[Rfam]
A member of the RNA family "Ascomycota telomerase RNA" from Sodiomyces alkalinus, 212 nucleotides of a longer RNA.
Clan: Telomerase clan.
Rfam 15.1 lists 475 matches to the family in 456 species.
The match comes from Rfam's covariance-model search (368 bits).
RNA sequence: UCCACCACAGUCCUCCGAUUCCUCUUUUCCGAAAGGAAUGUCUACUAUUGACCUCUCGAAAAGGACUGGAAAUUCGCAAUUCGCCGCUCUCGAGCCUGUAACAGGACAUCGUGUAUGCUGCGCUGGGAUCUAUUGCGGACGCUUGUUGUCAGUAUCAGACAACCCAGCCGGGCUGAGAGAAGGGGUUUCGGAACUUAACCCUAAGAUUUCUA
Numbered sequence: 001u002c003c004a005c006c007a008c009a010g011u012c013c014u015c016c017g018a019u020u021c022c023u024c025u026u027u028u029c030c031g032a033a034a035g036g037a038a039u040g041u042c043u044a045c046u047a048u049u050g051a052c053c054u055c056u057c058g059a060a061a062a063g064g065a066c067u068g069g070a071a072a073u074u075c076g077c078a079a080u081u082c083g084c085c086g087c088u089c090u091c092g093a094g095c096c097u098g099u100a101a102c103a104g105g106a107c108a109u110c111g112u113g114u115a116u117g118c119u120g121c122g123c124u125g126g127g128a129u130c131u132a133u134u135g136c137g138g139a140c141g142c143u144u145g146u147u148g149u150c151a152g153u154a155u156c157a158g159a160c161a162a163c164c165c166a167g168c169c170g171g172g173c174u175g176a177g178a179g180a181a182g183g184g185g186u187u188u189c190g191g192a193a194c195u196u197a198a199c200c201c202u203a204a205g206a207u208u209u210c211u212a
Base pairs, nucleotide, nucleotide: 009195010194011193015191016190017189018188